RNA: TPP riboswitch aptamer (THI element)
Organism: Pseudoxanthomonas dokdonensis
RNA sequence: GCGUAGAAGCGGGGGUAUCAGCGGCUUGGCCGGUGAUUGAGACAGACCCUUCGAACCUGAUCCGGUUGAGACCGGCGUAGGGAAGCUUCGCAGGAUCUGGA
Numbered sequence: 001g002c003g004u005a006g007a008a009g010c011g012g013g014g015g016u017a018u019c020a021g022c023g024g025c026u027u028g029g030c031c032g033g034u035g036a037u038u039g040a041g042a043c044a045g046a047c048c049c050u051u052c053g054a055a056c057c058u059g060a061u062c063c064g065g066u067u068g069a070g071a072c073c074g075g076c077g078u079a080g081g082g083a084a085g086c087u088u089c090g091c092a093g094g095a096u097c098u099g100g101a
Base pairs, nucleotide, nucleotide: 006089007088008087009086010085011050012049013048014047016044017037018036019035020034056081057080058079059078062075063074064073065072